[Rfam]
RNA sequence: CAGCGGGCUACCCCUCCCCACCGAGGGGCGAGCUAUCUGGAAGGAUAGGAACA
Numbered sequence: 001c002a003g004c005g006g007g008c009u010a011c012c013c014c015u016c017c018c019c020a021c022c023g024a025g026g027g028g029c030g031a032g033c034u035a036u037c038u039g040g041a042a043g044g045a046u047a048g049g050a051a052c053a
Stems, first nucleotide, its partner, number of pairs: 011028006033048006
Rfam assigns this 53-nucleotide sequence from Chelativorans sp. BNC1 to the family "serC leader". The base pairs follow the family's consensus structure. By type it is a cis-regulatory leader. For this family Rfam cites "Evidence for a second class of S-adenosylmethionine riboswitches and other regulatory RNA motifs in alpha-proteobacteria" (Corbino et al., Genome Biol, 2005). The organism belongs to Chelativorans, within Bacteria. From the family's description: This family is a putative regulatory RNA structure that is found upstream of the serC-serA operon in some alpha-proteobacteria.